[Rfam]
RNA sequence: GAUACCCGUAAAUCACCAAUGGGUCAAGCGUGGGUUGCACCAGUCGCACCGUUUGAGUCGUGGCAUCAUAGAGGCCGCCCCAUGUGGUGGCUUUUAGGACUAGCAGCAGCGCGCCCGCUCCUAAAAACAGCAAAUGGUGCCCUAAGAUCAUCCCCAAUUGCUUGGGGUCGCCCCA
Numbered sequence: 001g002a003u004a005c006c007c008g009u010a011a012a013u014c015a016c017c018a019a020u021g022g023g024u025c026a027a028g029c030g031u032g033g034g035u036u037g038c039a040c041c042a043g044u045c046g047c048a049c050c051g052u053u054u055g056a057g058u059c060g061u062g063g064c065a066u067c068a069u070a071g072a073g074g075c076c077g078c079c080c081c082a083u084g085u086g087g088u089g090g091c092u093u094u095u096a097g098g099a100c101u102a103g104c105a106g107c108a109g110c111g112c113g114c115c116c117g118c119u120c121c122u123a124a125a126a127a128c129a130g131c132a133a134a135u136g137g138u139g140c141c142c143u144a145a146g147a148u149c150a151u152c153c154c155c156a157a158u159u160g161c162u163u164g165g166g167g168u169c170g171c172c173c174c175a
Base pairs, nucleotide, nucleotide: 135170136169137168138167141166142165143164144163145162

This 175-nucleotide RNA sequence from an uncultured cyanobacterium belongs to the Rfam family "Antisense RNA which regulates isiA expression". The base pairs follow the family's consensus structure, which was predicted with PFOLD. The family has 308 seed sequences and 3,397 matches in Rfam 15.1.